mir-219 microRNA precursor family: an 80-nucleotide RNA from Pleuronectes platessa. The base pairs follow the family's consensus structure, which was predicted with RNAalifold.
RNA sequence: CUAGCAGCUGAUUGUCCAAACGCAAUUCUUGUUAAAUUUCAAAUCCAAUCCGAGAGUUGUGCAUGGACAUCUGUUGCUGG
Number, nucleotide and partner (000 for none) at each position: 001c000002u079003a078004g077005c076006a075007g074008c000009u000010g071011a070012u069013u000014g068015u067016c066017c065018a064019a000020a000021c061022g060023c059024a058025a057026u056027u055028c054029u053030u052031g051032u000033u000034a000035a000036a000037u000038u000039u000040c000041a000042a000043a000044u000045c000046c000047a000048a000049u000050c000051c031052g030053a029054g028055a027056g026057u025058u024059g023060u022061g021062c000063a000064u018065g017066g016067a015068c014069a012070u011071c010072u000073g000074u007075u006076g005077c004078u003079g002080g000